A member of the RNA family "Retrovirus direct repeat 1 (dr1)" from Rhinopomastus cyanomelas, 90 nucleotides long. Rfam links the family to the GO term viral genome replication. This family represents the direct repeat 1 (dr1) element commonly found in the 3' UTR of Avian sarcoma, Rous sarcoma and Avian leukosis viruses (Alpharetroviruses and Avian type C retroviruses). dr1 is required for efficient viral replication and is thought to be involved in genomic RNA packaging although this may not be its only role. The base pairs follow the family's consensus structure, which is taken from published work. On this family, see Aschoff et al., J Virol 1999: "Point mutations in the avian sarcoma/leukosis virus 3' untranslated region result in a packaging defect".

RNA sequence: UGUAACGGGACAAGGCUUGACCGAGAGGACAUUGCAUGUUUAGGCGUAAUGCGGGGAUUUCGGGAUGUGCGCGAUUAGGGUCCUCUCGAG
Numbered sequence: 001u002g003u004a005a006c007g008g009g010a011c012a013a014g015g016c017u018u019g020a021c022c023g024a025g026a027g028g029a030c031a032u033u034g035c036a037u038g039u040u041u042a043g044g045c046g047u048a049a050u051g052c053g054g055g056g057a058u059u060u061c062g063g064g065a066u067g068u069g070c071g072c073g074a075u076u077a078g079g080g081u082c083c084u085c086u087c088g089a090g
Stems, first nucleotide, its partner, number of pairs: 001012003023087008041077003045073002051068003